[Rfam]
RNA sequence: UAAAGCAAGAAGAAGCACCCGCUUCUCACCUGUUGACAACGGUUGUCAGGUUAGAAAUCGUCAGUUUUUAUUUAAUGAGCUGAUUAAAUGUGGGUGCCGUGUGUACCUGCAUUUUUUUGCGUAU
Numbered sequence: 001u002a003a004a005g006c007a008a009g010a011a012g013a014a015g016c017a018c019c020c021g022c023u024u025c026u027c028a029c030c031u032g033u034u035g036a037c038a039a040c041g042g043u044u045g046u047c048a049g050g051u052u053a054g055a056a057a058u059c060g061u062c063a064g065u066u067u068u069u070a071u072u073u074a075a076u077g078a079g080c081u082g083a084u085u086a087a088a089u090g091u092g093g094g095u096g097c098c099g100u101g102u103g104u105a106c107c108u109g110c111a112u113u114u115u116u117u118u119g120c121g122u123a124u
Stems, first nucleotide, its partner, number of pairs: 011026006028051003034045004089111009

The record is a 124-nucleotide RNA from Shouchella oshimensis, which matches "Ribosomal protein L20 leader" in Rfam. The base pairs follow the family's consensus structure, which was predicted with CMfinder. It scores 74 bits against the family's covariance model. Taxonomically the source falls in Shouchella oshimensis (Bacteria, Bacillati, Bacillota, Bacilli). Rfam's curators write: This family is a putative r-protein leader autoregulatory structure found in B. subtilis and other low-GC Gram-positive bacteria. It is located in the 5' untranslated regions of mRNAs encoding initiation factor 3 followed by ribosomal proteins L35 and L20 (infC-rpmI-rplT). A Rho-independent transcription terminator structure that is probably involved in regulation is included at the 3' end.